RNA sequence: GGUGUUCCUUAUCUAUCUUUAAUAUUGGUUUAGUUGGAGCCUGUCUUCCUAUGCUCUGGCCGUCAGAACAUACGAAGACAGGCCCAUAGCUUCUGCUGCCGCGUGGGCCGCCGUU
Numbered sequence: 001g002g003u004g005u006u007c008c009u010u011a012u013c014u015a016u017c018u019u020u021a022a023u024a025u026u027g028g029u030u031u032a033g034u035u036g037g038a039g040c041c042u043g044u045c046u047u048c049c050u051a052u053g054c055u056c057u058g059g060c061c062g063u064c065a066g067a068a069c070a071u072a073c074g075a076a077g078a079c080a081g082g083c084c085c086a087u088a089g090c091u092u093c094u095g096c097u098g099c100c101g102c103g104u105g106g107g108c109c110g111c112c113g114u115u
Base pairs, nucleotide, nucleotide: 001100002099003098004097022091023088024087037085039083040082041081042080043079044078045077048074050072051071052070055067056066057065058064

The family of this 115-nucleotide RNA from Sodalis glossinidius is "tp2". Rfam classes the family as a small RNA. The literature on the family includes a 2003 paper in Nucleic Acids Res by Hershberg et al., "A survey of small RNA-encoding genes in Escherichia coli". The source organism's lineage runs through Bacteria, Pseudomonadota, Bruguierivoracaceae, Sodalis and Sodalis glossinidius.